[Rfam]
RNA sequence: AUCUGGUGGUGGCACACUCCCUAAUCUCGGGUGGUGUGAUUUGCUGUAUUCGUCUUAAAGUCUCAGCGAACAUAAAAGCCCGCAACCUUGCGGGCUUUUUUAU
Number, nucleotide and partner (000 for none) at each position: 001a000002u000003c000004u000005g000006g000007u000008g000009g044010u043011g042012g041013c000014a037015c036016a035017c034018u033019c000020c031021c030022u029023a000024a000025u000026c000027u000028c000029g022030g021031g020032u000033g018034g017035u016036g015037u014038g000039a000040u000041u012042u011043g010044c009045u000046g000047u000048a000049u000050u000051c000052g000053u000054c000055u000056u000057a000058a000059a000060g000061u000062c000063u000064c000065a000066g000067c000068g000069a000070a000071c000072a000073u000074a000075a000076a000077a096078g095079c094080c093081c092082g091083c090084a089085a000086c000087c000088u000089u084090g083091c082092g081093g080094g079095c078096u077097u000098u000099u000100u000101u000102a000103u000